Purine riboswitch aptamer: a 96-nucleotide RNA sequence from Hungatella hathewayi. Taxonomically the source falls in Hungatella (Bacteria, Bacillati, Clostridia, Lachnospiraceae). Riboswitches are metabolite binding domains within certain messenger RNAs that serve as precision sensors for their corresponding targets. Allosteric rearrangement of mRNA structure is mediated by ligand binding, and this results in modulation of gene expression. A class of riboswitches that selectively recognises guanine and becomes saturated at concentrations as low as 5 nM. In Bacillus subtilis, this mRNA motif is located on at least five separate transcriptional units that together encode 17 genes that are mostly involved in purine transport and purine nucleotide biosynthesis. It has also been shown that some members of this family are specific for adenine instead.
RNA sequence: AGAUAAGUAUUCAAAGAAACUUAUAUAUGCUCAUAAUUGGUUGAGCGUUUCUACCAACUACCGUAAUAGUUGUCUAUAAGUUUUUGCAUGACUGUC
Number, nucleotide and partner (000 for none) at each position: 001a000002g000003a000004u000005a000006a000007g000008u000009a000010u000011u000012c000013a000014a000015a000016g000017a000018a082019a081020c080021u079022u078023a077024u076025a075026u000027a000028u000029g046030c045031u044032c043033a042034u000035a000036a000037u000038u000039g000040g000041u000042u033043g032044a031045g030046c029047g000048u000049u000050u000051c000052u000053a000054c000055c072056a071057a070058c069059u068060a067061c000062c000063g000064u000065a000066a000067u060068a059069g058070u057071u056072g055073u000074c000075u025076a024077u023078a022079a021080g020081u019082u018083u000084u000085u000086g000087c000088a000089u000090g000091a000092c000093u000094g000095u000096c000